[Rfam]
RNA sequence: GAUGCGAUGAUUAUCCAUAUAGGUUUUCGGCAGUGGUGGCUGCUGUCACCGUGAGCCUUCAAACCAAAAACGACUUAUCUUUCCAGUGAGCAUU
Numbered sequence: 001g002a003u004g005c006g007a008u009g010a011u012u013a014u015c016c017a018u019a020u021a022g023g024u025u026u027u028c029g030g031c032a033g034u035g036g037u038g039g040c041u042g043c044u045g046u047c048a049c050c051g052u053g054a055g056c057c058u059u060c061a062a063a064c065c066a067a068a069a070a071c072g073a074c075u076u077a078u079c080u081u082u083c084c085a086g087u088g089a090g091c092a093u094u
Stems, first nucleotide, its partner, number of pairs: 001094005
Description: The family of this 94-nucleotide sequence from Triticum urartu is "Small nucleolar RNA Z152/R70/R12/". The family's RNA type in Rfam is C/D-box small nucleolar RNA. A search with the family's covariance model found it, with a score of 53 bits. The literature on the family includes a 2001 paper in J Mol Biol by Barneche et al., "Identification of 66 box C/D snoRNAs in Arabidopsis thaliana: extensive gene duplications generated multiple isoforms predicting new ribosomal RNA 2'-O-methylation sites". Pairs were carried over by alignment from the consensus structure, which was predicted with PFOLD.